[Rfam]
RNA: Bacterial small subunit ribosomal RNA, nucleotides 521 to 874
Organism: Gemmata obscuriglobus
RNA sequence: GGCUUAAAGGGCGCGUAGGCGGGCUAUCAAGUCUGGGGUGAAAUGCCGCGGCUCAACCGCGGAACGGCCUCAGAUACUGACGGCCUGGAGGGAGGUAGGGGCAUGUGGAACUGUAGGUGGAGCGGUGAAAUGCGUUGAUAUCUACAGGAACUCCGGUGGCGAAAGCGACGUGCUGGACCUCUUCUGACGCUGAGGCGCGAAAGCUAGGGGAGCAAACGGGAUUAGAUACCCCGGUAGUCCUAGCCCUAAACGAUGGGUACUAGAUAGUAGACCAGAUAUGGGUUUACUGUCGAAGUUAAAAUGCUAAGUACCCCGCCUGGGGAGUAUGGUCGCAAGGCUGAAACUCAAAGAAAU
Numbered sequence: 001g002g003c004u005u006a007a008a009g010g011g012c013g014c015g016u017a018g019g020c021g022g023g024c025u026a027u028c029a030a031g032u033c034u035g036g037g038g039u040g041a042a043a044u045g046c047c048g049c050g051g052c053u054c055a056a057c058c059g060c061g062g063a064a065c066g067g068c069c070u071c072a073g074a075u076a077c078u079g080a081c082g083g084c085c086u087g088g089a090g091g092g093a094g095g096u097a098g099g100g101g102c103a104u105g106u107g108g109a110a111c112u113g114u115a116g117g118u119g120g121a122g123c124g125g126u127g128a129a130a131u132g133c134g135u136u137g138a139u140a141u142c143u144a145c146a147g148g149a150a151c152u153c154c155g156g157u158g159g160c161g162a163a164a165g166c167g168a169c170g171u172g173c174u175g176g177a178c179c180u181c182u183u184c185u186g187a188c189g190c191u192g193a194g195g196c197g198c199g200a201a202a203g204c205u206a207g208g209g210g211a212g213c214a215a216a217c218g219g220g221a222u223u224a225g226a227u228a229c230c231c232c233g234g235u236a237g238u239c240c241u242a243g244c245c246c247u248a249a250a251c252g253a254u255g256g257g258u259a260c261u262a263g264a265u266a267g268u269a270g271a272c273c274a275g276a277u278a279u280g281g282g283u284u285u286a287c288u289g290u291c292g293a294a295g296u297u298a299a300a301a302u303g304c305u306a307a308g309u310a311c312c313c314c315g316c317c318u319g320g321g322g323a324g325u326a327u328g329g330u331c332g333c334a335a336g337g338c339u340g341a342a343a344c345u346c347a348a349a350g351a352a353a354u
Stems, first nucleotide, its partner, number of pairs: 001317003009314001011198004016192001018191003022085004027080002030078002032074008046062006089185003092181005100174007107151001111147008122133003159166002203244006212238002217233004255313006263291011295302002319346003328339004
Dot-bracket structure: (((.....(.((((.(.(((.((((.((.((((((((((......((((((.....))))))....))))))))..)))).))))...((((((((...((((((((...((((((((...(((......)))......))))))))...).......((....)).)))))))..))))).)))...))))..))))....((((((...((...((((.........))))...))))))))..........((((((..(((((((((((.......)))))))))))...((....)).....)))))))))).(((......((((....))))....)))........